Background:
Rfam assigns this 76-nucleotide RNA sequence from Ornithorhynchus anatinus to the family "mir-216 microRNA precursor family". Its family is annotated with miRNA-mediated post-transcriptional gene silencing and RISC complex in the Gene Ontology. Its Rfam clan is "mir-216 clan".
[Rfam]
RNA sequence: AGACUGGGAAAUCUCUGCUGGCAAAUGUGGUGUCACGGUAGCAAUCGCACAAUUACCUGUAGAGAUUCUGCAAUCU
Numbered sequence: 001a002g003a004c005u006g007g008g009a010a011a012u013c014u015c016u017g018c019u020g021g022c023a024a025a026u027g028u029g030g031u032g033u034c035a036c037g038g039u040a041g042c043a044a045u046c047g048c049a050c051a052a053u054u055a056c057c058u059g060u061a062g063a064g065a066u067u068c069u070g071c072a073a074u075c076u
Base pairs, nucleotide, nucleotide: 003074005072006071010067011066012065013064014063015062016061017060020058021057023054024053026051027050028049029048

The match comes from Rfam's covariance-model search (63 bits). Taxonomically the source falls in Ornithorhynchus (Eukaryota, Deuterostomia, Tetrapoda, Prototheria).